[Rfam]
Annotation: The family of this 177-nucleotide part of an RNA from Proscoloplos cygnochaetus is "Eukaryotic small subunit ribosomal RNA". Rfam's curators put it in the seed alignment.
RNA sequence: CCGCCCGUCGCUACUACCGAUGAGUGAUGCAGUGAGACCUUUGGACUUGCCCAAACGACCGGGGUGGCGGCAACGUCCCUCGGAUCUGUGCGCAAGGAAGAACGUCAAACUGUAUUCCUUAGAGGAAGUAAAAGUCGUAACAAGGUUUCCGUAGGUGAACCUGCAGAAGGAUCAAGC
Numbered sequence: 001c002c003g004c005c006c007g008u009c010g011c012u013a014c015u016a017c018c019g020a021u022g023a024g025u026g027a028u029g030c031a032g033u034g035a036g037a038c039c040u041u042u043g044g045a046c047u048u049g050c051c052c053a054a055a056c057g058a059c060c061g062g063g064g065u066g067g068c069g070g071c072a073a074c075g076u077c078c079c080u081c082g083g084a085u086c087u088g089u090g091c092g093c094a095a096g097g098a099a100g101a102a103c104g105u106c107a108a109a110c111u112g113u114a115u116u117c118c119u120u121a122g123a124g125g126a127a128g129u130a131a132a133a134g135u136c137g138u139a140a141c142a143a144g145g146u147u148u149c150c151g152u153a154g155g156u157g158a159a160c161c162u163g164c165a166g167a168a169g170g171a172u173c174a175a176g177c
Stems, first nucleotide, its partner, number of pairs: 001144001003141001006137002009134001012130004017125002021121004026116008036106003040102003046096005052090002055087001059083006146169004151164005